[Rfam]
RNA sequence: GUAAGAAGGGCAUUCGGUGGAUGCCUUGGCGACAAGAGGCGAUGAAGGACGUGAUACGCUGCGAUAAGCGUCGGGGAGCUGCGAAUAAGCUUUGAUCCGGCGAUUUCCGAAUGGGGCAACCCACUCCGUAUGGAGUAUCCCGCAAGGGAAGCAAACCCGGGGAACUGAAACAUCUAAGUACCCGGAGGAAAGGACAUCAACCGAGACUCCGCUAGUAGUGGCGAGCGAACGCGGACCAGGCCAGUGGUCUACAUUUAAGAACCGGAACGCUCUGGAAAGUGCGGCCUCAGCGGGUGAUAGCCCCGUACGGGUAGAAAUAGUGUAGAUCCUUGAGUAGGGCGGGACACGUGAAAUCCUGUCUGAACAUGGGGGGACCACCCUCCAAGCCUAAGUACUCCUUGUCGACCGAUAGCGAACAAGUACCGUGAGGGAAAGGUGAAAAGCACCCCGACGAGGGGAGUGAAACAGAUCCUGAAACCGGAUGCCUACAAA
Numbered sequence: 001g002u003a004a005g006a007a008g009g010g011c012a013u014u015c016g017g018u019g020g021a022u023g024c025c026u027u028g029g030c031g032a033c034a035a036g037a038g039g040c041g042a043u044g045a046a047g048g049a050c051g052u053g054a055u056a057c058g059c060u061g062c063g064a065u066a067a068g069c070g071u072c073g074g075g076g077a078g079c080u081g082c083g084a085a086u087a088a089g090c091u092u093u094g095a096u097c098c099g100g101c102g103a104u105u106u107c108c109g110a111a112u113g114g115g116g117c118a119a120c121c122c123a124c125u126c127c128g129u130a131u132g133g134a135g136u137a138u139c140c141c142g143c144a145a146g147g148g149a150a151g152c153a154a155a156c157c158c159g160g161g162g163a164a165c166u167g168a169a170a171c172a173u174c175u176a177a178g179u180a181c182c183c184g185g186a187g188g189a190a191a192g193g194a195c196a197u198c199a200a201c202c203g204a205g206a207c208u209c210c211g212c213u214a215g216u217a218g219u220g221g222c223g224a225g226c227g228a229a230c231g232c233g234g235a236c237c238a239g240g241c242c243a244g245u246g247g248u249c250u251a252c253a254u255u256u257a258a259g260a261a262c263c264g265g266a267a268c269g270c271u272c273u274g275g276a277a278a279g280u281g282c283g284g285c286c287u288c289a290g291c292g293g294g295u296g297a298u299a300g301c302c303c304c305g306u307a308c309g310g311g312u313a314g315a316a317a318u319a320g321u322g323u324a325g326a327u328c329c330u331u332g333a334g335u336a337g338g339g340c341g342g343g344a345c346a347c348g349u350g351a352a353a354u355c356c357u358g359u360c361u362g363a364a365c366a367u368g369g370g371g372g373g374a375c376c377a378c379c380c381u382c383c384a385a386g387c388c389u390a391a392g393u394a395c396u397c398c399u400u401g402u403c404g405a406c407c408g409a410u411a412g413c414g415a416a417c418a419a420g421u422a423c424c425g426u427g428a429g430g431g432a433a434a435g436g437u438g439a440a441a442a443g444c445a446c447c448c449c450g451a452c453g454a455g456g457g458g459a460g461u462g463a464a465a466c467a468g469a470u471c472c473u474g475a476a477a478c479c480g481g482a483u484g485c486c487u488a489c490a491a492a
Stems, first nucleotide, its partner, number of pairs: 008487010023472001024436002028407002030404007037396002039152002047108003050063003069102007078090003113122003123136005138149004156187001157185005167174002197204002207392001208235005218226002238389004246330002249325005262310003268283003272279001286290001292304003337361008368383005423430002446458004

Overview
The record is a 492-nucleotide part of an RNA from Roseibium suaedae, which matches "Bacterial large subunit ribosomal RNA" in Rfam. Taxonomically the source falls in Roseibium (Bacteria, Pseudomonadati, Pseudomonadota, Alphaproteobacteria).